Rfam assigns this 135-nucleotide RNA sequence from Salmonella enterica to the family "sraL Hfq binding RNA". The family's RNA type in Rfam is small RNA. Taxonomically the source falls in Salmonella enterica subsp. enterica (Bacteria, Pseudomonadati, Pseudomonadota, Salmonella). The family's consensus secondary structure was predicted with RNAalifold. A reference for the family is Ortega et al. (2012), "Dynamics of Salmonella small RNA expression in non-growing bacteria located inside eukaryotic cells", RNA Biol. Gene Ontology term of the family: negative regulation of gene expression.
RNA sequence: GUUAGCACAAACCGGAACCUUGAAAGAGGGGUGCUGAUGCCGGGGGAAAACCCUCCUAGCCAGUGAGCAGGAUAACUAAAGGCCAGACCGAAAUUUUUGCAGUAAAACAAAGGCGCCUAGGGCGCUUUUUGUUUU
Dot-bracket structure: .(((((((.....(....)...........))))))).(((.(((.....)))((((.((......))))))........))).....................(((((((((((((...))))))))).)))).
Numbered sequence: 001g002u003u004a005g006c007a008c009a010a011a012c013c014g015g016a017a018c019c020u021u022g023a024a025a026g027a028g029g030g031g032u033g034c035u036g037a038u039g040c041c042g043g044g045g046g047a048a049a050a051c052c053c054u055c056c057u058a059g060c061c062a063g064u065g066a067g068c069a070g071g072a073u074a075a076c077u078a079a080a081g082g083c084c085a086g087a088c089c090g091a092a093a094u095u096u097u098u099g100c101a102g103u104a105a106a107a108c109a110a111a112g113g114c115g116c117c118u119a120g121g122g123c124g125c126u127u128u129u130u131g132u133u134u135u
Stems, first nucleotide, its partner, number of pairs: 002037007014019001039083003043053003054072004059068002105134004109129009